[Rfam]
RNA sequence: ACGGCGGAUUCCGAAAAGCCUUAAUAGAGUAGGAA
Numbered sequence: 001a002c003g004g005c006g007g008a009u010u011c012c013g014a015a016a017a018g019c020c021u022u023a024a025u026a027g028a029g030u031a032g033g034a035a
Base pairs, nucleotide, nucleotide: 003020004019005018010034011033012032

A member of the RNA family "DUF805b RNA", 35 nucleotides long. Rfam classes the family as a cis-regulatory element.